[Rfam]
Rfam assigns this 88-nucleotide RNA sequence from Paenibacillus sp. Root444D2 to the family "c-di-GMP-I riboswitch aptamer". Lineage of the source: Bacteria > Bacillota > Bacilli > Caryophanales > Paenibacillus.

RNA sequence: GUUCGACAAAGGCAAACUUGUUGAAAAGCAAGGACGCAAAGCUGAGGGUCUACGGUUCCAUUGGAACUAUGGCAGCCUGGUUACCGAA
Numbered sequence: 001g002u003u004c005g006a007c008a009a010a011g012g013c014a015a016a017c018u019u020g021u022u023g024a025a026a027a028g029c030a031a032g033g034a035c036g037c038a039a040a041g042c043u044g045a046g047g048g049u050c051u052a053c054g055g056u057u058c059c060a061u062u063g064g065a066a067c068u069a070u071g072g073c074a075g076c077c078u079g080g081u082u083a084c085c086g087a088a
Stems, first nucleotide, its partner, number of pairs: 012037002017032006040082004045078003048073003055067004